[Rfam]
RNA sequence: UGCCAUGAUGUCGUAAUUUGCGUCUGACUCUGCACUCAGCGACAGUUGCCUGCUGUCACAAGGCUGGUGCAGGUGGUUGGUGACCAGCUAAUUCUGAGCA
Numbered sequence: 001u002g003c004c005a006u007g008a009u010g011u012c013g014u015a016a017u018u019u020g021c022g023u024c025u026g027a028c029u030c031u032g033c034a035c036u037c038a039g040c041g042a043c044a045g046u047u048g049c050c051u052g053c054u055g056u057c058a059c060a061a062g063g064c065u066g067g068u069g070c071a072g073g074u075g076g077u078u079g080g081u082g083a084c085c086a087g088c089u090a091a092u093u094c095u096g097a098g099c100a
Base pairs, nucleotide, nucleotide: 001100002099003098021082022081023080024079030072031071032070033069034068039064040063041057042056043055044054045053